[Rfam]
RNA sequence: GGUCUCUAACCCGGAGGGACCAACGGACACCCGCAGCCUUUCCGGGUGCAGCCGAGAUCAGCGGCAUGGUGUCUUCCGUCGUCCUUCGGGACAGGAGUCCAUAGGCCCCCAUACGGUUUCGUACUGACC
Numbered sequence: 001g002g003u004c005u006c007u008a009a010c011c012c013g014g015a016g017g018g019a020c021c022a023a024c025g026g027a028c029a030c031c032c033g034c035a036g037c038c039u040u041u042c043c044g045g046g047u048g049c050a051g052c053c054g055a056g057a058u059c060a061g062c063g064g065c066a067u068g069g070u071g072u073c074u075u076c077c078g079u080c081g082u083c084c085u086u087c088g089g090g091a092c093a094g095g096a097g098u099c100c101a102u103a104g105g106c107c108c109c110c111a112u113a114c115g116g117u118u119u120c121g122u123a124c125u126g127a128c129c
Stems, first nucleotide, its partner, number of pairs: 001021007025074007033049003037045001051065004076116004081092004094109001097106002
The record is a 129-nucleotide sequence, which matches "xerDC RNA" in Rfam.